[Rfam]
RNA sequence: UGCGUGCACAGGGGAGAACCGACGCCACGCAGCCGCCGCGCUGCUUGAGCACGGUGCCGAAGGAGCAACCGCCCCGGAAACUCUCAGGCAAAAGGGACCUUGUGCACGGC
Numbered sequence: 001u002g003c004g005u006g007c008a009c010a011g012g013g014g015a016g017a018a019c020c021g022a023c024g025c026c027a028c029g030c031a032g033c034c035g036c037c038g039c040g041c042u043g044c045u046u047g048a049g050c051a052c053g054g055u056g057c058c059g060a061a062g063g064a065g066c067a068a069c070c071g072c073c074c075c076g077g078a079a080a081c082u083c084u085c086a087g088g089c090a091a092a093a094g095g096g097a098c099c100u101u102g103u104g105c106a107c108g109g110c
Base pairs, nucleotide, nucleotide: 006105007104008103009102010101011100012099013098019054020053021052056089057088058087059085060084063083064082065081069077070076
Glycine riboswitch aptamer: a 110-nucleotide RNA from Phaeobacter sp. CECT 5382. NCBI's taxonomy places the organism under Bacteria, Pseudomonadota, Rhodobacterales, Roseobacteraceae, Phaeobacter. Rfam's curators write: This family represents the bacterial glycine riboswitch.